Shown here is a 54-nucleotide sequence from Novosphingobium silvae, a member of the family "nhaA-I RNA". Rfam describes the family as follows. Acidobacteria, Alphaproteobacteria, Betaproteobacteria and Gammaproteobacteria, Verrucomicrobia, cand. division NC10.
RNA sequence: GGGUGUCCGCUCCUUAGGGACGGGCAGGUUCUUGCGAUGGUCGGGCCGCCAUCG
Numbered sequence: 001g002g003g004u005g006u007c008c009g010c011u012c013c014u015u016a017g018g019g020a021c022g023g024g025c026a027g028g029u030u031c032u033u034g035c036g037a038u039g040g041u042c043g044g045g046c047c048g049c050c051a052u053c054g
Stems, first nucleotide, its partner, number of pairs: 005025005011019002035054007
A search with the family's covariance model found it, with a score of 58 bits. Lineage of the source: Bacteria > Pseudomonadati > Alphaproteobacteria > Sphingomonadales > Novosphingobium. By type it is a riboswitch.